[Rfam]
Rfam assigns this 80-nucleotide sequence from Chanos chanos to the family "mir-199 microRNA precursor family". The literature on the family includes a 2002 paper in Genes Dev by Mourelatos et al., "miRNPs: a novel class of ribonucleoproteins containing numerous microRNAs". The organism belongs to Chanos, within Eukaryota. Rfam 15.1 lists 1,828 matches to the family in 648 species. Rfam describes the family as follows. This family consists of the microRNA (miRNA) precursor mir-199 which appears to be specific to humans. Gene Ontology terms of the family: miRNA-mediated post-transcriptional gene silencing and RISC complex.

RNA sequence: ACUCCGUCUGCCCAGUGUUCAGACUACCUGUUCAUGAUUCAACUAGUGUACAGUAGUCUGCACAUUGGUUAGACUGGGUG
Numbered sequence: 001a002c003u004c005c006g007u008c009u010g011c012c013c014a015g016u017g018u019u020c021a022g023a024c025u026a027c028c029u030g031u032u033c034a035u036g037a038u039u040c041a042a043c044u045a046g047u048g049u050a051c052a053g054u055a056g057u058c059u060g061c062a063c064a065u066u067g068g069u070u071a072g073a074c075u076g077g078g079u080g
Base pairs, nucleotide, nucleotide: 012068013067014066015065016064017063018062020060021059022058023057024056025055026054028053029052030051031050033048034047